[Rfam]
The record is a 46-nucleotide sequence from Neodiprion lecontei, which matches "Histone 3' UTR stem-loop" in Rfam.
For this family Rfam cites "The sequence of the stem and flanking sequences at the 3' end of histone mRNA are critical determinants for the binding of the stem-loop binding protein" (Williams and Marzluff, Nucleic Acids Res, 1995).
The family's RNA type in Rfam is cis-regulatory element.
Its family is annotated with mRNA 3'-end processing by stem-loop binding and cleavage in the Gene Ontology.
The organism belongs to Neodiprion, within Eukaryota.
A search with the family's covariance model found it, with a score of 38 bits.

RNA sequence: CCACCGGCCCUUUUCAGGGCCACCAAAUUAUUGAAAGCGAAAGAAU
Numbered sequence: 001c002c003a004c005c006g007g008c009c010c011u012u013u014u015c016a017g018g019g020c021c022a023c024c025a026a027a028u029u030a031u032u033g034a035a036a037g038c039g040a041a042a043g044a045a046u
Base pairs, nucleotide, nucleotide: 006021007020008019009018010017011016